The record is an 87-nucleotide RNA from Camellia sinensis, which matches "Small nucleolar RNA Z122" in Rfam. It scores 64 bits against the family's covariance model. The family's RNA type in Rfam is C/D-box small nucleolar RNA.

RNA sequence: UUUGGGAAAUGAUGAUAAAACAGCUUACAUAAGCUCGGUGGUCUGCGCUAUGCUGAACUUUUAUUUGCACGUCAGUCUGAUCCCAAA
Numbered sequence: 001u002u003u004g005g006g007a008a009a010u011g012a013u014g015a016u017a018a019a020a021c022a023g024c025u026u027a028c029a030u031a032a033g034c035u036c037g038g039u040g041g042u043c044u045g046c047g048c049u050a051u052g053c054u055g056a057a058c059u060u061u062u063a064u065u066u067g068c069a070c071g072u073c074a075g076u077c078u079g080a081u082c083c084c085a086a087a
Stems, first nucleotide, its partner, number of pairs: 001087007